Notes
The record is a 134-nucleotide RNA sequence from Pseudomonas graminis, which matches "rmf RNA" in Rfam.
RNA sequence: UUGGUUAGAAAUCACCCAAGGUCAUCGCCGCAACGGCGGUGGCAUCAAGCCCGCGACGCCGGCAGCGGGCCGCUAACGGCAGAAGAUUUUCUGCCGGACCUCAACCUGAGGUCUCCAGGGACAUUACAGUCAAC
Numbered sequence: 001u002u003g004g005u006u007a008g009a010a011a012u013c014a015c016c017c018a019a020g021g022u023c024a025u026c027g028c029c030g031c032a033a034c035g036g037c038g039g040u041g042g043c044a045u046c047a048a049g050c051c052c053g054c055g056a057c058g059c060c061g062g063c064a065g066c067g068g069g070c071c072g073c074u075a076a077c078g079g080c081a082g083a084a085g086a087u088u089u090u091c092u093g094c095c096g097g098a099c100c101u102c103a104a105c106c107u108g109a110g111g112u113c114u115c116c117a118g119g120g121a122c123a124u125u126a127c128a129g130u131c132a133a134c
Stems, first nucleotide, its partner, number of pairs: 021043009049070006078095006097113006